[Rfam]
RNA sequence: UGUCUGAAGUCUGAAGGAACUCCCGGUGUGAUAUGUGUAUAGUAUUGUGCUAAAUACCCCAUAUCACAGCAGUAGUUACCUACUAACUUUGCACU
Numbered sequence: 001u002g003u004c005u006g007a008a009g010u011c012u013g014a015a016g017g018a019a020c021u022c023c024c025g026g027u028g029u030g031a032u033a034u035g036u037g038u039a040u041a042g043u044a045u046u047g048u049g050c051u052a053a054a055u056a057c058c059c060c061a062u063a064u065c066a067c068a069g070c071a072g073u074a075g076u077u078a079c080c081u082a083c084u085a086a087c088u089u090u091g092c093a094c095u
Stems, first nucleotide, its partner, number of pairs: 003093001005091006015081003018077004023072001025070001027068009
RNA: mir-2944 microRNA precursor family
Organism: Anopheles darlingi